[Rfam]
RNA sequence: CUAUGUCAAAGUAAUUGAUAUGGCGGAAGGAG
Numbered sequence: 001c002u003a004u005g006u007c008a009a010a011g012u013a014a015u016u017g018a019u020a021u022g023g024c025g026g027a028a029g030g031a032g
Base pairs, nucleotide, nucleotide: 001023002022003021004020005019006018007017008016
RNA: L31-Firmicutes ribosomal protein leader